RNA: MIR394 microRNA precursor family
Organism: Thalictrum thalictroides
RNA sequence: CUUACAGAGUUCAUUGGCAUUCUGUCCACCUUCUUCCAUAUCAUUCACUUGUUAAUUUCUUUUACCUAUUUGAUGAAGGAGGUGGGUAUACUGCCAACUUAGCUGUGUGAG
Numbered sequence: 001c002u003u004a005c006a007g008a009g010u011u012c013a014u015u016g017g018c019a020u021u022c023u024g025u026c027c028a029c030c031u032u033c034u035u036c037c038a039u040a041u042c043a044u045u046c047a048c049u050u051g052u053u054a055a056u057u058u059c060u061u062u063u064a065c066c067u068a069u070u071u072g073a074u075g076a077a078g079g080a081g082g083u084g085g086g087u088a089u090a091c092u093g094c095c096a097a098c099u100u101a102g103c104u105g106u107g108u109g110a111g
Stems, first nucleotide, its partner, number of pairs: 011101001014097006023088011
Dot-bracket structure: ..........(..((((((...(((((((((((............................................)))))))))))...))))))...)..........